[Rfam]
RNA sequence: CUAAGACGGUGCUUACCUUAGCAACGUAUUUGAAAAUAGACAUUCUAAGACGUUGCUGAUGUAAGCACCGUCUAAGAAUGCGUACUUUCAAAGACGGUACUGAUGUAAGCACCGUCUUU
Numbered sequence: 001c002u003a004a005g006a007c008g009g010u011g012c013u014u015a016c017c018u019u020a021g022c023a024a025c026g027u028a029u030u031u032g033a034a035a036a037u038a039g040a041c042a043u044u045c046u047a048a049g050a051c052g053u054u055g056c057u058g059a060u061g062u063a064a065g066c067a068c069c070g071u072c073u074a075a076g077a078a079u080g081c082g083u084a085c086u087u088u089c090a091a092a093g094a095c096g097g098u099a100c101u102g103a104u105g106u107a108a109g110c111a112c113c114g115u116c117u118u119u
Stems, first nucleotide, its partner, number of pairs: 004117004009112008018103003023098001025096003029092007037084002041080006048073005054067004
The family of this 119-nucleotide sequence from Glycine soja is "MIR4374 microRNA precursor family". It scores 105 bits against the family's covariance model. The base pairs follow the family's consensus structure, which was predicted with RNAalifold. NCBI's taxonomy places the organism under Eukaryota, Viridiplantae, Euphyllophyta, Glycine, Glycine subgen. Soja. The family has 3 seed sequences and 72 matches in Rfam 15.1.